[Rfam]
Nucleotides: 177
Base pairs, nucleotide, nucleotide: 005140006139008137009136010135011134012133014129015128016126017125021124028123031120040111042109046105048103051100052099054097055075056074057073058072059071060070061069062068082096083095084094085093086092147177151172152171154165155164156163
Number, partner (000 for none) and nucleotide at each position: 001000u002000c003000c004000g005140c006139a007000g008137c009136g010135c011134g012133u013000g014129g015128c016126g017125g018000a019000u020000c021124a022000c023000c024000a025000c026000g027000u028123u029000g030000c031120g032000g033000a034000a035000g036000c037000u038000g039000a040111c041000g042109c043000c044000c045000u046105u047000c048103a049000g050000g051100c052099g053000g054097g055075c056074g057073g058072u059071g060070c061069g062068g063000a064000u065000g066000u067000a068062u069061u070060g071059c072058g073057c074056c075055g076000u077000c078000a079000u080000c081000a082096c083095c084094u085093c086092g087000g088000c089000c090000a091000u092086c093085g094084a095083g096082g097054c098000g099052c100051g101000g102000g103048u104000c105046a106000u107000c108000c109042g110000g111040g112000c113000g114000a115000u116000g117000u118000a119000g120031c121000c122000g123028a124021u125017c126016c127000c128015g129014u130000a131000a132000a133012g134011c135010g136009c137008g138000a139006u140005g141000g142000u143000c144000a145000g146000c147177a148000c149000g150000g151172g152171c153000a154165g155164g156163g157000u158000g159000a160000a161000a162000u163156u164155c165154u166000c167000g168000a169000a170000g171152g172151u173000g174000a175000u176000g177147u

A member of the RNA family "Ruegeria cis52 sRNA" from Aliigemmobacter aestuarii, 177 nucleotides long.
The family's consensus secondary structure was predicted with RNAfold.
By type it is a small RNA.